[Rfam]
A member of the RNA family "UnaL2 LINE 3' element" from Coregonus sp. 'balchen', 54 nucleotides long.
It scores 56 bits against the family's covariance model.
NCBI's taxonomy places the organism under Eukaryota, Craniata, Vertebrata, Actinopteri, Coregonus.
The family has 30 seed sequences and 493,311 matches in Rfam 15.1.
From the family's description: The eel long interspersed element (LINE) UnaL2 and its partner short interspersed element (SINE) share a conserved 3' tail containing a stem-loop that is critical for their retrotransposition.
The family's RNA type in Rfam is cis-regulatory element.
The literature on the family includes a 2004 paper in RNA by Baba et al., "Solution structure of an RNA stem-loop derived from the 3' conserved region of eel LINE UnaL2".

RNA sequence: AAAUGUAUUCACUCUAAGUCGCUCUGGAUAAGAGCGUCUGCUAAAUGACGUAAA
Numbered sequence: 001a002a003a004u005g006u007a008u009u010c011a012c013u014c015u016a017a018g019u020c021g022c023u024c025u026g027g028a029u030a031a032g033a034g035c036g037u038c039u040g041c042u043a044a045a046u047g048a049c050g051u052a053a054a
Base pairs, nucleotide, nucleotide: 013043015040016039020036021035022034023033024032025031